The family of this 85-nucleotide RNA from Ciona savignyi is "mir-281 microRNA precursor family". It is one of the family's seed sequences.

RNA sequence: AUGUCAAGUGCGUGUCGGAGGGUUAUUUCAUGCCGGUCUAGCAUUGCGCUGUCAUGGAGUUGCUCUCUCAUUGGCGCUAUGGCUU
Numbered sequence: 001a002u003g004u005c006a007a008g009u010g011c012g013u014g015u016c017g018g019a020g021g022g023u024u025a026u027u028u029c030a031u032g033c034c035g036g037u038c039u040a041g042c043a044u045u046g047c048g049c050u051g052u053c054a055u056g057g058a059g060u061u062g063c064u065c066u067c068u069c070a071u072u073g074g075c076g077c078u079a080u081g082g083c084u085u
Base pairs, nucleotide, nucleotide: 003083004082005081007078008077009076010075011074014071015070017068018067019066020065021064022063023062025060026059027058028057029056030055031054032053034051035050036049037048038046
About this RNA: Lineage of the source: Eukaryota > Eumetazoa > Bilateria > Cionidae > Ciona. Gene Ontology terms of the family: RISC complex and miRNA-mediated post-transcriptional gene silencing.